RNA sequence: UUGCAAUGAUGGCAAUUUUUCGUCAACAGUAUUUCACCCUGGUGGAUGUUGAGAAACUCAAUCUGAGCAA
Numbered sequence: 001u002u003g004c005a006a007u008g009a010u011g012g013c014a015a016u017u018u019u020u021c022g023u024c025a026a027c028a029g030u031a032u033u034u035c036a037c038c039c040u041g042g043u044g045g046a047u048g049u050u051g052a053g054a055a056a057c058u059c060a061a062u063c064u065g066a067g068c069a070a
Stems, first nucleotide, its partner, number of pairs: 002069003008024004
A member of the RNA family "Small nucleolar RNA SNORD56" from Hymenochirus boettgeri, 70 nucleotides long. The family has 7 seed sequences and 796 matches in Rfam 15.1. The base pairs follow the family's consensus structure, which was predicted with PFOLD.